A member of the RNA family "Small nucleolar RNA snoR2/U65" from Punica granatum, 148 nucleotides long. Its Rfam clan is "SNORA65 clan". Rfam links the family to the GO terms RNA processing and nucleolus. By type it is an H/ACA-box small nucleolar RNA. The source organism's lineage runs through Eukaryota, Spermatophyta, Mesangiospermae, rosids and Punica.
[Rfam]
RNA sequence: GGUCUGAUGCCACGUCGCCGGUAGCGAAAGGGCUAUGACCGGCGAUGCUAUGAUCGGACCGACAGAAAUUCCAUGUUUCGCUGUUGAUAGGAACCUGCGGAUCUCAAUUUACUAAUGGUCUGCGGAGCCGUUUUAUGCGAUUACAUUC
Numbered sequence: 001g002g003u004c005u006g007a008u009g010c011c012a013c014g015u016c017g018c019c020g021g022u023a024g025c026g027a028a029a030g031g032g033c034u035a036u037g038a039c040c041g042g043c044g045a046u047g048c049u050a051u052g053a054u055c056g057g058a059c060c061g062a063c064a065g066a067a068a069u070u071c072c073a074u075g076u077u078u079c080g081c082u083g084u085u086g087a088u089a090g091g092a093a094c095c096u097g098c099g100g101a102u103c104u105c106a107a108u109u110u111a112c113u114a115a116u117g118g119u120c121u122g123c124g125g126a127g128c129c130g131u132u133u134u135a136u137g138c139g140a141u142u143a144c145a146u147u148c
Stems, first nucleotide, its partner, number of pairs: 002059007009051001013047006020040003024033002078140004090129002095125003099121005